[Rfam]
Nucleotides: 137
Base pairs, nucleotide, nucleotide: 011122012121013120014119018033019032020031021030022029034117035116036115037114038113039112051102052101053100059080060079061078062077063076064075065074083096084095
Number, partner (000 for none) and nucleotide at each position: 001000a002000g003000a004000a005000u006000g007000c008000a009000u010000a011122u012121g013120c014119c015000a016000a017000a018033u019032u020031c021030c022029a023000g024000a025000g026000c027000a028000a029022u030021g031020g032019a033018a034117g035116c036115g037114g038113g039112g040000g041000a042000u043000c044000c045000a046000a047000c048000c049000a050000c051102g052101g053100g054000u055000g056000a057000a058000u059080u060079g061078a062077u063076c064075u065074u066000g067000c068000u069000a070000c071000u072000a073000a074065g075064g076063g077062a078061u079060c080059a081000u082000a083096g084095g085000g086000g087000a088000c089000c090000u091000u092000c093000a094000a095084c096083c097000g098000a099000a100053c101052c102051c103000u104000a105000c106000a107000g108000c109000u110000a111000a112039c113038c114037u115036c116035g117034c118000a119014g120013g121012c122011a123000g124000c125000g126000g127000a128000a129000g130000g131000a132000g133000u134000u135000a136000u137000u
Shown here is a 137-nucleotide RNA from Paenibacillus uliginis, a member of the family "c-di-AMP riboswitch aptamer (ydaO/yuaA leader)".